[Rfam]
RNA sequence: ACCUAGGGUAGAGGUGCGGUGUCUAUCAGUAGCUGUUAUUAGUCGGCAGACGUUUUAGCAACAGUGAAAGGAUUCAUCGCCGAAGGAAACAAGCUUUUGCAGAAGCCUUUCCUGGCAGUGCACAUAAGAUGUGUAAUGUUGUCACUUUUAUUUAAAAGUGGAGAGCUACAAGGUUC
Numbered sequence: 001a002c003c004u005a006g007g008g009u010a011g012a013g014g015u016g017c018g019g020u021g022u023c024u025a026u027c028a029g030u031a032g033c034u035g036u037u038a039u040u041a042g043u044c045g046g047c048a049g050a051c052g053u054u055u056u057a058g059c060a061a062c063a064g065u066g067a068a069a070g071g072a073u074u075c076a077u078c079g080c081c082g083a084a085g086g087a088a089a090c091a092a093g094c095u096u097u098u099g100c101a102g103a104a105g106c107c108u109u110u111c112c113u114g115g116c117a118g119u120g121c122a123c124a125u126a127a128g129a130u131g132u133g134u135a136a137u138g139u140u141g142u143c144a145c146u147u148u149u150a151u152u153u154a155a156a157a158g159u160g161g162a163g164a165g166c167u168a169c170a171a172g173g174u175u176c
Base pairs, nucleotide, nucleotide: 008169009168010167011166016080017079018078019077020076021075024072032065033064034063035062036061037060039058084113085112086111087110088109089108093106094105095104114140115139116138117137119135120134121133122132123131124130142161143160144159145158146157147156148155

The record is a 176-nucleotide sequence from Clostridium cellulovorans, which matches "Lysine riboswitch aptamer" in Rfam. The match comes from Rfam's covariance-model search (99 bits). Rfam describes the family as follows. Riboswitches are metabolite binding domains within certain messenger RNAs that serve as precision sensors for their corresponding targets. Its family is annotated with lysine biosynthetic process in the Gene Ontology. The base pairs follow the family's consensus structure, which is taken from published work. Lineage of the source: Bacteria > Bacillati > Clostridiaceae > Clostridium > Clostridium cellulovorans.